[Rfam]
RNA sequence: GGGGAUCUUCGGAGCCCUUCACCCCGGACCCGGAUGGGUCCUGAAGCAAACGGAAGACAGUAA
Numbered sequence: 001g002g003g004g005a006u007c008u009u010c011g012g013a014g015c016c017c018u019u020c021a022c023c024c025c026g027g028a029c030c031c032g033g034a035u036g037g038g039u040c041c042u043g044a045a046g047c048a049a050a051c052g053g054a055a056g057a058c059a060g061u062a063a
Stems, first nucleotide, its partner, number of pairs: 001018004006014001008012001026041006